Rfam assigns this 179-nucleotide RNA from Solibacillus silvestris to the family "Lysine riboswitch aptamer". Lineage of the source: Bacteria > Bacillota > Bacilli > Caryophanales > Solibacillus silvestris. Riboswitches are metabolite binding domains within certain messenger RNAs that serve as precision sensors for their corresponding targets. Allosteric rearrangement of mRNA structure is mediated by ligand binding, and this results in modulation of gene expression. This family includes riboswitches that sense lysine in a number of genes involved in lysine metabolism, including lysC. Its family is annotated with lysine biosynthetic process in the Gene Ontology.
RNA sequence: UACUAAGAUAGAGGUGCAGUAUUCAAUAGUACAUUGCUUGAGGAAGAACAAUUCCAUUGACAGCAAUCGAAAGGGGGUCCUGCCGAAGUGAAGUGCGUAUUGUUCGCGUAGUUUGCUGGUUUUGCAUUUAAGAGAUGUAAAACUGUCAGAGCUUUUUGUUCUGGAGGGCUAUCCUGAAA
Numbered sequence: 001u002a003c004u005a006a007g008a009u010a011g012a013g014g015u016g017c018a019g020u021a022u023u024c025a026a027u028a029g030u031a032c033a034u035u036g037c038u039u040g041a042g043g044a045a046g047a048a049c050a051a052u053u054c055c056a057u058u059g060a061c062a063g064c065a066a067u068c069g070a071a072a073g074g075g076g077g078u079c080c081u082g083c084c085g086a087a088g089u090g091a092a093g094u095g096c097g098u099a100u101u102g103u104u105c106g107c108g109u110a111g112u113u114u115g116c117u118g119g120u121u122u123u124g125c126a127u128u129u130a131a132g133a134g135a136u137g138u139a140a141a142a143c144u145g146u147c148a149g150a151g152c153u154u155u156u157u158g159u160u161c162u163g164g165a166g167g168g169c170u171a172u173c174c175u176g177a178a179a
Stems, first nucleotide, its partner, number of pairs: 007173005016083004021078004033067006087117006094110005118144011146164007

The base pairs follow the family's consensus structure, which is taken from published work.